A member of the RNA family "radC RNA" from Paracidovorax citrulli, 143 nucleotides long.

[Rfam]
RNA sequence: CUAUCGACCGCAGGUCGCGGAGGACUUCUCCUCCCUUCCCAGGCAGCCAUGAUCUUCAAGGCUGCGGCGCGCUGGCGCCGAUCACACCAGUCCGCUCCGCAUCCGAAACGGUGGACGCCCAGCGCGAAAGCGCUGGUGGAUGC
Number, nucleotide and partner (000 for none) at each position: 001c000002u000003a000004u000005c000006g000007a000008c000009c000010g000011c000012a036013g035014g000015u000016c000017g000018c000019g034020g033021a032022g031023g030024a029025c000026u000027u000028c000029u024030c023031c022032u021033c020034c019035c013036u012037u000038c000039c000040c000041a000042g000043g065044c064045a063046g062047c061048c060049a000050u000051g083052a082053u081054c080055u000056u000057c000058a000059a000060g048061g047062c046063u045064g044065c043066g079067g078068c077069g076070c075071g000072c000073u000074g000075g070076c069077g068078c067079c066080g054081a053082u052083c051084a000085c000086a000087c000088c000089a000090g000091u000092c000093c000094g000095c000096u000097c000098c000099g000100c000101a000102u000103c000104c000105g000106a000107a000108a000109c000110g000111g143112u142113g141114g000115a000116c000117g000118c000119c136120c135121a134122g133123c132124g131125c130126g000127a000128a000129a000130g125131c124132g123133c122134u121135g120136g119137u000138g000139g000140a000141u113142g112143c111
The family's RNA type in Rfam is cis-regulatory element. Rfam's curators put it in the seed alignment. Lineage of the source: Bacteria > Pseudomonadota > Burkholderiales > Comamonadaceae > Paracidovorax citrulli. The base pairs follow the family's consensus structure, which is taken from published work.